[Rfam]
RNA sequence: GGGGGAAGGCCCCUCGGAGCCGCCAUACAGGUGGAGGCUUCAAACCACCUUAAGCUGCUGUGGUCAAGAGCCAUGGUGGUAAGCGUUAAGGAAAAGUCGGGGGCAGGU
Numbered sequence: 001g002g003g004g005g006a007a008g009g010c011c012c013c014u015c016g017g018a019g020c021c022g023c024c025a026u027a028c029a030g031g032u033g034g035a036g037g038c039u040u041c042a043a044a045c046c047a048c049c050u051u052a053a054g055c056u057g058c059u060g061u062g063g064u065c066a067a068g069a070g071c072c073a074u075g076g077u078g079g080u081a082a083g084c085g086u087u088a089a090g091g092a093a094a095a096g097u098c099g100g101g102g103g104c105a106g107g108u
Stems, first nucleotide, its partner, number of pairs: 001015005016041006023034004048091006054080002057077003061073004
Description
Shown here is a 108-nucleotide RNA sequence from a Peptococcaceae bacterium, a member of the family "Group II catalytic intron D1-D4-2". Rfam's curators write: Group II introns are found in rRNA, tRNA and mRNA of organelles in fungi, plants and protists, and also in mRNA in bacteria. A reference for the family is Chu et al. (2001), "Control of branch-site choice by a group II intron", EMBO J. Rfam links the family to the GO term Group II intron splicing.